[Rfam]
RNA sequence: GCGCUGCCACAACGGCUUCCUGGCGUGGCGGUCUGACAGUCAAUGGAGCA
Numbered sequence: 001g002c003g004c005u006g007c008c009a010c011a012a013c014g015g016c017u018u019c020c021u022g023g024c025g026u027g028g029c030g031g032u033c034u035g036a037c038a039g040u041c042a043a044u045g046g047a048g049c050a
Base pairs, nucleotide, nucleotide: 004031005030006029007028008027009026010025013022014021015049016048017047019046020045

The family of this 50-nucleotide RNA is "SAM/SAH riboswitch aptamer". Its family is annotated with regulation of gene expression and S-adenosylmethionine metabolic process in the Gene Ontology. On this family, see Weickhmann et al., Nucleic Acids Res 2019: "The structure of the SAM/SAH-binding riboswitch". The sequence is in the family's curated seed alignment.